Rfam assigns this 279-nucleotide RNA sequence from Pseudocercospora musae to the family "A. fumigatus sRNA Afu_309". The family has 10 seed sequences and 663 matches in Rfam 15.1. The organism belongs to Pseudocercospora, within Eukaryota. The literature on the family includes a 2008 paper in Nucleic Acids Res by Jochl et al., "Small ncRNA transcriptome analysis from Aspergillus fumigatus suggests a novel mechanism for regulation of protein synthesis". Pairs were carried over by alignment from the consensus structure, which was predicted with WAR. It scores 99 bits against the family's covariance model. The family's RNA type in Rfam is small RNA.
RNA sequence: CUCUUCUAUCUACACAAAGAUCUGUGGGCUUGACUUCCCGCGUGCUGCGAAAGCGGUACUGUUGGUUGAUAUCUACCCAGUUCGACGACUAUGGGAACUUCUUAUUCUUUGAUGAAGCACGUCCGGUCGACAGAUCUAAGAGCAAUGGUGGUGGUAGCGGAGGCUUGUUGAAUUGCUCGUCAGUUCCGAGUCGCCCUACUGCCCGGGCGCUAUAUUCCAAAACGUUCUCGAGCCCGUCGGGCAAUGGGAGUUGGGUAAAACCAUAGCUUGCCUAUAUUC
Number, nucleotide and partner (000 for none) at each position: 001c000002u000003c000004u000005u000006c000007u000008a000009u000010c000011u000012a000013c000014a000015c000016a000017a000018a137019g136020a135021u134022c133023u132024g131025u130026g078027g077028g076029c000030u075031u000032g073033a000034c000035u000036u069037c068038c065039c064040g063041c061042g060043u058044g057045c056046u055047g054048c053049g000050a000051a000052a000053g048054c047055g046056g045057u044058a043059c000060u042061g041062u000063u040064g039065g038066u000067u000068g037069a036070u000071a000072u000073c032074u000075a030076c028077c027078c026079a000080g000081u000082u000083c000084g000085a000086c129087g128088a127089c126090u125091a000092u000093g118094g000095g000096a000097a000098c114099u000100u000101c000102u000103u000104a000105u000106u000107c000108u000109u000110u000111g000112a000113u000114g098115a000116a000117g000118c093119a000120c000121g000122u000123c000124c000125g090126g089127u088128c087129g086130a025131c024132a023133g022134a021135u020136c019137u018138a000139a000140g000141a000142g000143c000144a000145a000146u000147g000148g202149u201150g200151g000152u000153g000154g199155u198156a197157g196158c000159g194160g000161a000162g000163g000164c190165u189166u188167g187168u000169u000170g186171a185172a184173u183174u182175g181176c000177u000178c000179g000180u000181c175182a174183g173184u172185u171186c170187c167188g166189a165190g164191u000192c000193g000194c159195c000196c157197u156198a155199c154200u150201g149202c148203c000204c000205g000206g272207g271208c270209g267210c266211u265212a264213u263214a000215u000216u000217c000218c000219a000220a000221a000222a256223c255224g252225u000226u000227c250228u249229c248230g000231a000232g242233c241234c240235c239236g000237u000238c000239g235240g234241g233242c232243a000244a000245u000246g000247g000248g229249a228250g227251u000252u224253g000254g000255g223256u222257a000258a000259a000260a000261c000262c000263a213264u212265a211266g210267c209268u000269u000270g208271c207272c206273u000274a000275u000276a000277u000278u000279c000